Notes:
This 67-nucleotide RNA sequence from Bombyx mori belongs to the Rfam family "mir-2774 microRNA precursor family". The organism belongs to Bombyx, within Eukaryota.
[Rfam]
Nucleotides: 067
Base pairs, nucleotide, nucleotide: 004064005063012056015053016052017051020049021048022047023046024045025044026043027042028041029040
Number, partner (000 for none) and nucleotide at each position: 001000a002000c003000a004064a005063c006000c007000u008000u009000c010000a011000g012056a013000c014000c015053g016052u017051c018000g019000g020049u021048u022047c023046a024045u025044c026043g027042a028041g029040c030000a031000a032000u033000a034000u035000c036000a037000c038000c039000c040029g041028c042027u043026c044025g045024a046023u047022g048021g049020a050000a051017g052016a053015u054000c055000u056012u057000g058000c059000c060000u061000u062000u063005g064004u065000c066000g067000u

Source information:
Rfam links the family to the GO terms miRNA-mediated post-transcriptional gene silencing and RISC complex.